[Rfam]
RNA sequence: GCCGGUCCUCGGUAGUGGCCCCCGGGUGGCCGUCCCGAAGCGGACGGACCCGACCCGGUGGCUUCGAUCGAAGACCGGC
Numbered sequence: 001g002c003c004g005g006u007c008c009u010c011g012g013u014a015g016u017g018g019c020c021c022c023c024g025g026g027u028g029g030c031c032g033u034c035c036c037g038a039a040g041c042g043g044a045c046g047g048a049c050c051c052g053a054c055c056c057g058g059u060g061g062c063u064u065c066g067a068u069c070g071a072a073g074a075c076c077g078g079c
Stems, first nucleotide, its partner, number of pairs: 001079007009071005017063004022058006029051001
Dot-bracket structure: (((((((.(((((...((((.((((((.(.....................).)))))).))))...))))).)))))))